[Rfam]
RNA sequence: UUUUGUAUUUUUCCACAGCUUUCUUGAACUGCAUAUAUAAUUAUUCGAUGAAGAGAGUUAAAUUGUUGCGGUUCAAUAAAGCUGUGGGAAGAUAUAUAUA
Dot-bracket structure: ...((((.....(((.((((((.((((.(((((.................................))))).)))).)))))).))).....))))....
MIR396 microRNA precursor family: a 100-nucleotide RNA from Solanum tuberosum.